[Rfam]
RNA sequence: UGUUCUAGGUAAUCGCAGUGAGUCCAACGAUUCAUUGAGGAAAGUCCAUGCUCGCACAAGCUGCGAAGCUUGUAGUGAUCGUGCUUAGCGAAACCAUAAGCUAAGGUAACUUUUUAAGUUAACGGCGAAUAAAAAACCUAAGGUUUAACUAUGGUUGAGUCAUUCAUAAAGUGCCACAGAAACGAGUCUUAUUGGAAACAAUAAGAAUGGAACGCGGUAAACCCCUCGAGCGAGCAACCCAAACACUUAAGGUAGGGGCACUUCUUCUAGGGAAAUGAACCGAUGAAGAAGACACAUUUUUGUGUAGACAGAUGAUUACCCAUCACUUAAUGGCCUAUUCAUUAAGUGAGGACAGAACAUGGCUUAUAAGA
Numbered sequence: 001u002g003u004u005c006u007a008g009g010u011a012a013u014c015g016c017a018g019u020g021a022g023u024c025c026a027a028c029g030a031u032u033c034a035u036u037g038a039g040g041a042a043a044g045u046c047c048a049u050g051c052u053c054g055c056a057c058a059a060g061c062u063g064c065g066a067a068g069c070u071u072g073u074a075g076u077g078a079u080c081g082u083g084c085u086u087a088g089c090g091a092a093a094c095c096a097u098a099a100g101c102u103a104a105g106g107u108a109a110c111u112u113u114u115u116a117a118g119u120u121a122a123c124g125g126c127g128a129a130u131a132a133a134a135a136a137c138c139u140a141a142g143g144u145u146u147a148a149c150u151a152u153g154g155u156u157g158a159g160u161c162a163u164u165c166a167u168a169a170a171g172u173g174c175c176a177c178a179g180a181a182a183c184g185a186g187u188c189u190u191a192u193u194g195g196a197a198a199c200a201a202u203a204a205g206a207a208u209g210g211a212a213c214g215c216g217g218u219a220a221a222c223c224c225c226u227c228g229a230g231c232g233a234g235c236a237a238c239c240c241a242a243a244c245a246c247u248u249a250a251g252g253u254a255g256g257g258g259c260a261c262u263u264c265u266u267c268u269a270g271g272g273a274a275a276u277g278a279a280c281c282g283a284u285g286a287a288g289a290a291g292a293c294a295c296a297u298u299u300u301u302g303u304g305u306a307g308a309c310a311g312a313u314g315a316u317u318a319c320c321c322a323u324c325a326c327u328u329a330a331u332g333g334c335c336u337a338u339u340c341a342u343u344a345a346g347u348g349a350g351g352a353c354a355g356a357a358c359a360u361g362g363c364u365u366a367u368a369a370g371a
Stems, first nucleotide, its partner, number of pairs: 004371003007367001008320007016037006042365003046362005051234005056073006079229003083225001084105006106123001107121006124224002127165004135156004142150003171222002173218003187206008238257003261291007292305005323349011